The record is a 93-nucleotide RNA sequence from Lactuca sativa, which matches "Small nucleolar RNA snoR8a" in Rfam.
Lineage of the source: Eukaryota > Streptophytina > eudicotyledons > Gunneridae > Lactuca.
RNA sequence: AGGGCUGCUGUGAUUAUAAACAAAAAGAUUUAAUAUCUGAAUGCUAUUUCGAUGGCAUGAUAGACUCUUUUACACCCAUAGAAUAUGAGCACC
Number, nucleotide and partner (000 for none) at each position: 001a000002g000003g093004g092005c000006u091007g090008c000009u000010g000011u000012g000013a000014u000015u000016a000017u000018a000019a000020a000021c000022a000023a000024a000025a000026a000027g000028a000029u000030u000031u000032a000033a000034u000035a000036u000037c000038u000039g000040a000041a000042u000043g000044c000045u000046a000047u000048u000049u000050c000051g000052a000053u000054g000055g000056c000057a000058u000059g000060a000061u000062a000063g000064a000065c000066u000067c000068u000069u000070u000071u000072a000073c000074a000075c000076c000077c000078a000079u000080a000081g000082a000083a000084u000085a000086u000087g000088a000089g000090c007091a006092c004093c003
It is annotated as a C/D-box small nucleolar RNA.